[Rfam]
Nucleotides: 129
Stems, first nucleotide, its partner, number of pairs: 003127005009121002016028003030109002032098002034047004042096002051073002078094005100112003
Number, partner (000 for none) and nucleotide at each position: 001000c002000a003127c004126g005125u006124g007123c008000u009121c010120c011000g012000g013000g014000g015000u016028c017027g018026g019000u020000g021000a022000a023000a024000g025000u026018c027017c028016g029000a030109g031108c032098c033097g034047g035046c036045g037044g038000u039000a040000a041000a042096g043095u044037c045036c046035g047034c048000g049000a050000c051073c052072c053000g054000c055000a056000c057000c058000u059000g060000c061000a062000g063000u064000u065000u066000g067000g068000g069000u070000g071000u072052g073051g074000c075000u076000g077000a078094u079093c080092u081091g082090g083000u084000g085000c086000a087000a088000u089000u090082c091081c092080a093079g094078a095043a096042c097033c098032g099000a100112c101111g102110g103000u104000u105000a106000a107000a108031g109030u110102c111101c112100g113000g114000a115000a116000g117000g118000g119000a120010g121009g122000c123007g124006c125005a126004c127003g128000u129000g

The record is a 129-nucleotide sequence from Gulosibacter macacae, which matches "FMN riboswitch aptamer (RFN element)" in Rfam. It scores 97 bits against the family's covariance model.